[Rfam]
RNA sequence: GUGCUGAUGGCAGUUGUAAGUUAUAAGCAGCUGAGGAAAGUCCGUACUCGCACUUACUGGAAUGUAAGUAAUUUUAGUGCUAGGUCAAAUAAACCUAGGCGGGUUUGCUGACUAAUAUUAAUUUAUUAGUAUUAGUGACCCGACGGCUGGCUCUCCUACCUAAUCUGCUUCUUUCUCUCUCCUAGCAGAAUGGUAGUGAGUCUAUAAAGUGCUAUAGUGACGAUUACUAGGGAAACCUAGGAAGUGAGACGUCGUAAACCCCACUAGCGAGCAAUCCAAAUUCUUUUAAAUUGGUAGGAGCACUAAAUAACUAACCUUUAUUUUUAUGUUUGUGAAGGUAGUUAAGCAGAAAAGUUUACUCAAUAAACUUUCUCUUUAAGAAGAACAAAAAUUCUUAUUUGG
Numbered sequence: 001g002u003g004c005u006g007a008u009g010g011c012a013g014u015u016g017u018a019a020g021u022u023a024u025a026a027g028c029a030g031c032u033g034a035g036g037a038a039a040g041u042c043c044g045u046a047c048u049c050g051c052a053c054u055u056a057c058u059g060g061a062a063u064g065u066a067a068g069u070a071a072u073u074u075u076a077g078u079g080c081u082a083g084g085u086c087a088a089a090u091a092a093a094c095c096u097a098g099g100c101g102g103g104u105u106u107g108c109u110g111a112c113u114a115a116u117a118u119u120a121a122u123u124u125a126u127u128a129g130u131a132u133u134a135g136u137g138a139c140c141c142g143a144c145g146g147c148u149g150g151c152u153c154u155c156c157u158a159c160c161u162a163a164u165c166u167g168c169u170u171c172u173u174u175c176u177c178u179c180u181c182c183u184a185g186c187a188g189a190a191u192g193g194u195a196g197u198g199a200g201u202c203u204a205u206a207a208a209g210u211g212c213u214a215u216a217g218u219g220a221c222g223a224u225u226a227c228u229a230g231g232g233a234a235a236c237c238u239a240g241g242a243a244g245u246g247a248g249a250c251g252u253c254g255u256a257a258a259c260c261c262c263a264c265u266a267g268c269g270a271g272c273a274a275u276c277c278a279a280a281u282u283c284u285u286u287u288a289a290a291u292u293g294g295u296a297g298g299a300g301c302a303c304u305a306a307a308u309a310a311c312u313a314a315c316c317u318u319u320a321u322u323u324u325u326a327u328g329u330u331u332g333u334g335a336a337g338g339u340a341g342u343u344a345a346g347c348a349g350a351a352a353a354g355u356u357u358a359c360u361c362a363a364u365a366a367a368c369u370u371u372c373u374c375u376u377u378a379a380g381a382a383g384a385a386c387a388a389a390a391a392u393u394c395u396u397a398u399u400u401g402g
Stems, first nucleotide, its partner, number of pairs: 004402003007398001008362002011033006038396003044393001047271005052069006075266005080098006099144001100142006145261002149202003157195004164189006209259002211255002224243002227240005275299003304326004309321001328347005369379001